[Rfam]
Bacteroidete tryptophan peptide leader RNA: a 128-nucleotide sequence from Flavobacterium noncentrifugens. The family's consensus secondary structure is taken from published work. The match comes from Rfam's covariance-model search (68 bits). Taxonomically the source falls in Flavobacterium (Bacteria, Pseudomonadati, Bacteroidota, Flavobacteriaceae).
RNA sequence: UUGUAAAACACAAAAAGAUCAUGAACACAAUUUUAAACAAUAGCUGGUGGUGGAACAAUUUACGUCAAAUGUCGUGAACAGUCUGCUAUAAGUAUAUUUUAAAAUCUAAAUAUCCGAAAAGGCUUGUC
Numbered sequence: 001u002u003g004u005a006a007a008a009c010a011c012a013a014a015a016a017g018a019u020c021a022u023g024a025a026c027a028c029a030a031u032u033u034u035a036a037a038c039a040a041u042a043g044c045u046g047g048u049g050g051u052g053g054a055a056c057a058a059u060u061u062a063c064g065u066c067a068a069a070u071g072u073c074g075u076g077a078a079c080a081g082u083c084u085g086c087u088a089u090a091a092g093u094a095u096a097u098u099u100u101a102a103a104a105u106c107u108a109a110a111u112a113u114c115c116g117a118a119a120a121g122g123c124u125u126g127u128c
Base pairs, nucleotide, nucleotide: 036099037098040095041094042093044092045091047089049087050086051085052084057082059080061078062072063071064070
Annotation: It is annotated as a cis-regulatory leader.